Record summary
Streptomyces RNA 3202: a 90-nucleotide sequence from Streptomyces sp. Act143. Pairs were carried over by alignment from the consensus structure. A reference for the family is Vockenhuber et al. (2011), "Deep sequencing-based identification of small non-coding RNAs in Streptomyces coelicolor", RNA Biol. The family's RNA type in Rfam is small RNA. About the family: Identified by deep sequencing of transcriptome at the end of exponential growth phase. Appears smaller on northern blot than sequencing transcript. This indicates processing step. Streptomyces specific. Lineage of the source: Bacteria > Actinomycetota > Actinomycetes > Kitasatosporales > Streptomyces.

RNA sequence: CCAAGUCCCGACGCACUCCCCCCGGCGCCGGGACUCUCCCUGAGCCGGACUCCGGCGCCCUCCCCCCGGGCGCCGGGGUCCGGCUCUGCU
Dot-bracket structure: ....((((((.(((..........))).)))))).......((((((((((.((((((((.......)))))))).))))))))))....